Rfam assigns this 117-nucleotide RNA from Motilibacter peucedani to the family "SAM (S-adenosyl methionine) riboswitch aptamer". The literature on the family includes a 2008 paper in RNA by Weinberg et al., "The aptamer core of SAM-IV riboswitches mimics the ligand-binding site of SAM-I riboswitches". Lineage of the source: Bacteria > Bacillati > Actinomycetes > Motilibacteraceae > Motilibacter.
[Rfam]
RNA sequence: GGUCAUGAGUGCCAGCGACAAGCCCCGGCUCGCUGGCCGGCAACCCUCGCAGUGCGGUGGGGUGCCCCGGGUGACGACCAGGUCUGCGACCGCACGGUCCGCAGGCAAGCGCUCUGC
Numbered sequence: 001g002g003u004c005a006u007g008a009g010u011g012c013c014a015g016c017g018a019c020a021a022g023c024c025c026c027g028g029c030u031c032g033c034u035g036g037c038c039g040g041c042a043a044c045c046c047u048c049g050c051a052g053u054g055c056g057g058u059g060g061g062g063u064g065c066c067c068c069g070g071g072u073g074a075c076g077a078c079c080a081g082g083u084c085u086g087c088g089a090c091c092g093c094a095c096g097g098u099c100c101g102c103a104g105g106c107a108a109g110c111g112c113u114c115u116g117c
Stems, first nucleotide, its partner, number of pairs: 001079004009038001011037006021030002039066003044062003048057001082106007089098003